[Rfam]
Enterobacterial sRNA STnc240: a 75-nucleotide sequence from Enterobacterales bacterium CwR94.
It scores 62 bits against the family's covariance model.
The organism belongs to Enterobacterales, within Bacteria.

RNA sequence: UUACAAUGGUGCAUAAUCCGCGCCUUGCAAAAUAGAAUAAUAACCGUCGCAACUAAGCGCCGGUUAUUUUUUUUG
Numbered sequence: 001u002u003a004c005a006a007u008g009g010u011g012c013a014u015a016a017u018c019c020g021c022g023c024c025u026u027g028c029a030a031a032a033u034a035g036a037a038u039a040a041u042a043a044c045c046g047u048c049g050c051a052a053c054u055a056a057g058c059g060c061c062g063g064u065u066a067u068u069u070u071u072u073u074u075g
Stems, first nucleotide, its partner, number of pairs: 011021002041066006048059002